[Rfam]
RNA sequence: UGGUCUUUACCAAGGUUUUUAGAAUGCAGUUUCUCAUUUGCUGUGGACAUGACUGUUAAAAAAAAAUCCCCACUAGGUUUUAUAUAUGCUAUUUGGCUAGCAGUCAAUCUAUUGGGAACAUUU
Dot-bracket structure: ..(((.(..(((.............((((........))))..)))..).)))...............((((...((((.......(((..........)))...))))...)))).......
The family of this 123-nucleotide RNA from Jaculus jaculus is "Small nucleolar RNA SNORA32". Lineage of the source: Eukaryota > Vertebrata > Mammalia > Theria > Jaculus. The family has 9 seed sequences and 615 matches in Rfam 15.1. About the family: ACA32 is a member of the H/ACA class of snoRNA that guide the sites of modification of uridines to pseudouridines.